[Rfam]
Nucleotides: 197
Stems, first nucleotide, its partner, number of pairs: 004194007017029003031177002033166002035065004060164002069141002146162005168180003
Number, partner (000 for none) and nucleotide at each position: 001000a002000u003000a004194u005193u006192c007191c008190u009189u010188c011000g012000g013000g014000g015000u016000c017029g018028g019027g020000u021000g022000c023000a024000a025000u026000u027019c028018c029017c030000a031177a032176c033166c034165g035065g036064c037063g038062g039000u040000g041000a042000u043000g044000a045000a046000g047000c048000g049000a050000a051000u052000g053000c054000u055000u056000c057000u058000u059000a060164g061163u062038c063037c064036g065035u066000g067000a068000c069141c070140c071000g072000g073000u074000u075000a076000a077000c078000u079000g080000g081000c082000a083000u084000u085000a086000u087000c088000c089000u090000g091000c092000u093000g094000u095000g096000g097000c098000g099000g100000a101000c102000g103000u104000g105000u106000u107000g108000u109000c110000c111000a112000a113000g114000c115000u116000g117000c118000g119000g120000a121000u122000g123000u124000u125000a126000u127000u128000u129000g130000c131000c132000u133000g134000u135000u136000a137000a138000a139000c140070g141069g142000u143000g144000g145000a146162u147161c148160u149159g150158g151000u152000g153000g154000a155000a156000c157000u158150c159149c160148a161147g162146g163061g164060c165034c166033g167000a168180c169179a170178g171000u172000g173000a174000a175000a176032g177031u178170c179169u180168g181000g182000a183000u184000g185000g186000g187000a188010g189009a190008a191007g192006g193005a194004a195000a196000a197000u
FMN riboswitch aptamer (RFN element): a 197-nucleotide RNA sequence from Bacillus sp. T33-2. The match comes from Rfam's covariance-model search (102 bits). Its family is annotated with FMN binding in the Gene Ontology. Rfam's curators write: The RFN element is a highly conserved domain that is found frequently in the 5'-untranslated regions of prokaryotic mRNAs that encode for flavin mononucleotide (FMN) biosynthesis and transport proteins. This element is a metabolite-dependent riboswitch that directly binds FMN in the absence of proteins. In Bacillus subtilis, the riboswitch most likely controls gene expression by causing premature transcription termination within the 5' untranslated region of the ribDEAHT operon and precluding access to the ribosome-binding site of ypaA mRNA.The FMN riboswitch structure, reported in present an FMN-bound six-stem junction, adopts a butterfly-like scaffold, stapled together by opposingly directed but nearly identically folded peripheral domains.